[Rfam]
RNA sequence: UCGUAAAAUAACAAAUAACAAUGAGAACUAUAUUAGUAAAUACAUAUUGGUGGUGGCACCCGUUACAACUCCGACAGUCGUAAGGGAGCAGCGCUCGUGUGUAUAUACUUCAUUCAAUAUAUAACAGAUUUGGAAAAGAGCCCUGUC
Number, nucleotide and partner (000 for none) at each position: 001u000002c000003g000004u000005a000006a000007a000008a000009u000010a000011a000012c000013a000014a000015a000016u000017a000018a000019c000020a000021a000022u000023g000024a000025g000026a000027a000028c000029u000030a000031u000032a000033u000034u000035a000036g108037u107038a106039a000040a104041u103042a102043c101044a100045u099046a098047u097048u000049g095050g094051u093052g092053g000054u000055g000056g089057c088058a000059c086060c085061c084062g000063u000064u000065a000066c080067a000068a078069c077070u076071c000072c000073g000074a000075c000076a070077g069078u068079c000080g066081u000082a000083a000084g061085g060086g059087a000088g057089c056090a000091g000092c052093g051094c050095u049096c000097g047098u046099g045100u044101g043102u042103a041104u040105a000106u038107a037108c036109u000110u000111c000112a000113u000114u000115c000116a000117a000118u000119a000120u000121a000122u000123a000124a000125c000126a000127g000128a000129u000130u000131u000132g000133g000134a000135a000136a000137a000138g000139a000140g000141c000142c000143c000144u000145g000146u000147c000
Bacteroidete tryptophan peptide leader RNA: a 147-nucleotide RNA from Jilunia laotingensis. The match comes from Rfam's covariance-model search (109 bits). It is annotated as a cis-regulatory leader. NCBI's taxonomy places the organism under Bacteria, Bacteroidota, Bacteroidia, Bacteroidaceae, Jilunia.